[Rfam]
Nucleotides: 101
Stems, first nucleotide, its partner, number of pairs: 003099006013041001015040003021031003025077001027075002042069004047065002050060003073093001078090005
Number, partner (000 for none) and nucleotide at each position: 001000u002000u003099c004098u005097c006096a007095u008094u009000c010000a011000g012000a013041g014000u015040g016039g017038u018000g019000g020000a021031g022030g023029g024000a025077c026000u027075g028074g029023c030022c031021c032000g033000a034000u035000g036000a037000a038017a039016c040015c041013c042069a043068g044067c045066a046000a047065c048064c049000g050060g051059c052058c053000u054000u055000a056000g057000c058052g059051g060050c061000a062000g063000u064048g065047g066045u067044g068043c069042u070000a071000a072000u073093u074028c075027c076000u077025g078090c079089a080088g081087g082086a083000u084000u085000u086082u087081c088080c089079u090078g091000g092000a093073a094008g095007a096006u097005g098004a099003g100000u101000u
Shown here is a 101-nucleotide RNA from Desulfosporosinus fructosivorans, a member of the family "SAM riboswitch aptamer (S box leader)". The match comes from Rfam's covariance-model search (86 bits). Pairs were carried over by alignment from the consensus structure, which is taken from published work. Taxonomically the source falls in Desulfosporosinus (Bacteria, Bacillati, Clostridia, Desulfitobacteriaceae).